[Rfam]
Nucleotides: 079
Stems, first nucleotide, its partner, number of pairs: 001079002003076002
Number, partner (000 for none) and nucleotide at each position: 001079g002078c003076g004075c005000c006000u007000g008000a009000g010000a011000a012000u013000g014000a015000u016000g017000a018000a019000a020000a021000u022000u023000g024000u025000g026000u027000u028000g029000g030000u031000a032000g033000g034000g035000a036000c037000a038000u039000c040000u041000g042000a043000g044000c045000g046000c047000a048000a049000u050000g051000a052000u053000g054000a055000u056000u057000a058000c059000c060000a061000a062000c063000g064000u065000c066000u067000c068000u069000g070000a071000u072000c073000a074000g075004g076003c077000u078002g079001c
Small nucleolar RNA SNORD74: a 79-nucleotide RNA from Xenopus laevis. It is annotated as a C/D-box small nucleolar RNA. Its Rfam clan is "SNORD74 clan". Rfam links the family to the GO terms RNA processing and nucleolus. NCBI's taxonomy places the organism under Eukaryota, Opisthokonta, Teleostomi, Anura, Xenopus. The base pairs follow the family's consensus structure, which was predicted with PFOLD.